Bacterial RNase P class A: a 357-nucleotide RNA. The family is grouped with related families in Rfam's "RNaseP clan".
[Rfam]
RNA sequence: AAGGUGCAACAGGUAGUUGCUGGCAGCAUAAUCGCUGCGAGAGGAAAGUCCGGGCUACAAGUGAGACAGGGCUCCAUCUAACGGAUGGCCAGAGUAAUCUGAGGGCAAGUGCAACAGAGAGUAGGUAGCCUGUCGGUGUUCUAUCGGCAGGUGAUAGUGAAAGGGUGGGGUAAGAGCCCACCGGUGCUUUUGGCAACAAGAGCAGCCAGGUAAACCCUGUCCGUAGCAAGAAGUAUAUGGUAUGAGUCUCACAAGCCAUUAACUUGGCAUUUAUACUUUGCUUGAGCGUAGUGGUAACACUGUGCCUAGAUAAAUAACUACCCAAGACAGAACCCGGCUUAUCGUUGCACCUGUAAU
Dot-bracket structure: .(((((((((((((((((.((.(((((......))))).))....[[[.[[[[[((((......[[..((((.(((((.....)))))(((((....)))).)((...((((.............(((((((((((.......)))))))))..)).......((((((.......)))))).(((((((((....)))))))).)...))..)))).))))))))...((((..................((((...]]..)))).........))))......((((((((....))))))))..........)))))))..........]]]]]]]].).))))))))).....
Numbered sequence: 001a002a003g004g005u006g007c008a009a010c011a012g013g014u015a016g017u018u019g020c021u022g023g024c025a026g027c028a029u030a031a032u033c034g035c036u037g038c039g040a041g042a043g044g045a046a047a048g049u050c051c052g053g054g055c056u057a058c059a060a061g062u063g064a065g066a067c068a069g070g071g072c073u074c075c076a077u078c079u080a081a082c083g084g085a086u087g088g089c090c091a092g093a094g095u096a097a098u099c100u101g102a103g104g105g106c107a108a109g110u111g112c113a114a115c116a117g118a119g120a121g122u123a124g125g126u127a128g129c130c131u132g133u134c135g136g137u138g139u140u141c142u143a144u145c146g147g148c149a150g151g152u153g154a155u156a157g158u159g160a161a162a163g164g165g166u167g168g169g170g171u172a173a174g175a176g177c178c179c180a181c182c183g184g185u186g187c188u189u190u191u192g193g194c195a196a197c198a199a200g201a202g203c204a205g206c207c208a209g210g211u212a213a214a215c216c217c218u219g220u221c222c223g224u225a226g227c228a229a230g231a232a233g234u235a236u237a238u239g240g241u242a243u244g245a246g247u248c249u250c251a252c253a254a255g256c257c258a259u260u261a262a263c264u265u266g267g268c269a270u271u272u273a274u275a276c277u278u279u280g281c282u283u284g285a286g287c288g289u290a291g292u293g294g295u296a297a298c299a300c301u302g303u304g305c306c307u308a309g310a311u312a313a314a315u316a317a318c319u320a321c322c323c324a325a326g327a328c329a330g331a332a333c334c335c336g337g338c339u340u341a342u343c344g345u346u347g348c349a350c351c352u353g354u355a356a357u
Stems, first nucleotide, its partner, number of pairs: 002352009011342001012322007020041002023038005046340003050337005055226004065260002069222004074088005089103001090101004104217002109215002111211002126156002128152009164182006184206001185204008230279004252266004286305008